Shown here is a 578-nucleotide part of an RNA from uncultured marine crenarchaeote AD1000-23-H12, a member of the family "Archaeal small subunit ribosomal RNA". The sequence is in the family's curated seed alignment. Rfam 15.1 lists 709 matches to the family in 491 species. Its Rfam clan is "SSU clan".
RNA sequence: UGGCGGGGGAGCACCACAAGGGGUGAAGCCUGCGGUUCAAUUGGAGUCAACGCCGGGAAUCUUACCAGGAGCGACAGCAGGAUGAAAGUCAAGUUGGAGACUUUACUAGACAAGCUGAGAGGUGGUGCAUGGCCGUCGUCAGCUCGUGCCGUGAGGCGUCCUGUUAAGUCAGGCAACGAGCGAGACCCCCACCGUUAAUUGCUUUCAGCGACCGUAGGGUUGCUGGAGAUAUUUAGCGGGACUGCUACCGCUAAGGUGGAGGAAGGAGGGGGCCACGGCAGGUCAGUAUGCCCCGAAACUCCUGGGCUACACGCGGGCUGCAAUGGUAGGUACAAUGAGUUUCGACCUCGAAAGGGGAAGGUAAUCCCGAAAACCUACCCCAGUUGUGACUGAGGGCUGAAACUCGCCCUCACGAAUCUGGAAUCCCUAGUAAUCGCGUGUCAACAUCGCGCGGUGAAUACGUCCCUGCUCCUUGCACACACCGCCCGUCGCUUCACCCGAGUUGGGUUUGGGCGAGGUAACGCCUAAUUGACGUUGUCGAACCUGAGCUCAACAAGGGGGGAGAAGUCGUAACAAGG
Numbered sequence: 001u002g003g004c005g006g007g008g009g010a011g012c013a014c015c016a017c018a019a020g021g022g023g024u025g026a027a028g029c030c031u032g033c034g035g036u037u038c039a040a041u042u043g044g045a046g047u048c049a050a051c052g053c054c055g056g057g058a059a060u061c062u063u064a065c066c067a068g069g070a071g072c073g074a075c076a077g078c079a080g081g082a083u084g085a086a087a088g089u090c091a092a093g094u095u096g097g098a099g100a101c102u103u104u105a106c107u108a109g110a111c112a113a114g115c116u117g118a119g120a121g122g123u124g125g126u127g128c129a130u131g132g133c134c135g136u137c138g139u140c141a142g143c144u145c146g147u148g149c150c151g152u153g154a155g156g157c158g159u160c161c162u163g164u165u166a167a168g169u170c171a172g173g174c175a176a177c178g179a180g181c182g183a184g185a186c187c188c189c190c191a192c193c194g195u196u197a198a199u200u201g202c203u204u205u206c207a208g209c210g211a212c213c214g215u216a217g218g219g220u221u222g223c224u225g226g227a228g229a230u231a232u233u234u235a236g237c238g239g240g241a242c243u244g245c246u247a248c249c250g251c252u253a254a255g256g257u258g259g260a261g262g263a264a265g266g267a268g269g270g271g272g273c274c275a276c277g278g279c280a281g282g283u284c285a286g287u288a289u290g291c292c293c294c295g296a297a298a299c300u301c302c303u304g305g306g307c308u309a310c311a312c313g314c315g316g317g318c319u320g321c322a323a324u325g326g327u328a329g330g331u332a333c334a335a336u337g338a339g340u341u342u343c344g345a346c347c348u349c350g351a352a353a354g355g356g357g358a359a360g361g362u363a364a365u366c367c368c369g370a371a372a373a374c375c376u377a378c379c380c381c382a383g384u385u386g387u388g389a390c391u392g393a394g395g396g397c398u399g400a401a402a403c404u405c406g407c408c409c410u411c412a413c414g415a416a417u418c419u420g421g422a423a424u425c426c427c428u429a430g431u432a433a434u435c436g437c438g439u440g441u442c443a444a445c446a447u448c449g450c451g452c453g454g455u456g457a458a459u460a461c462g463u464c465c466c467u468g469c470u471c472c473u474u475g476c477a478c479a480c481a482c483c484g485c486c487c488g489u490c491g492c493u494u495c496a497c498c499c500g501a502g503u504u505g506g507g508u509u510u511g512g513g514c515g516a517g518g519u520a521a522c523g524c525c526u527a528a529u530u531g532a533c534g535u536u537g538u539c540g541a542a543c544c545u546g547a548g549c550u551c552a553a554c555a556a557g558g559g560g561g562g563a564g565a566a567g568u569c570g571u572a573a574c575a576a577g578g
Base pairs, nucleotide, nucleotide: 001479002478003476004475005474007473008472009471010470011469012468013467016463017462020427021426022425023424024423025321027319028318029317030316031315032314033313034312035310036309041056042055043054044053065305066304067303068302069301070300071299075117076116077115078114080111087107088106089105091103092102093101121294122293124292125291126290127289130288131287132283133282134281135279136278137277138276142181143180144179145178146177147176148157149156150155160173161172162171163170187271188270189269190268192239193238194237195236196235197234198233202228203227206225207224208223209222210221211220212219242262243261245259246258247257248256249255325379326378327377328376329375330374331373337367339366342361343360346357347356348355349354386417391412392411393410394409395408396407397406433455434454435453436452437451438450439449440448482577484574487570488569490567492564493563494562495561497559498558499557502554503553504552505551506550507549508548509547510546511545512544513543517539518538519537520536521535522534523533525531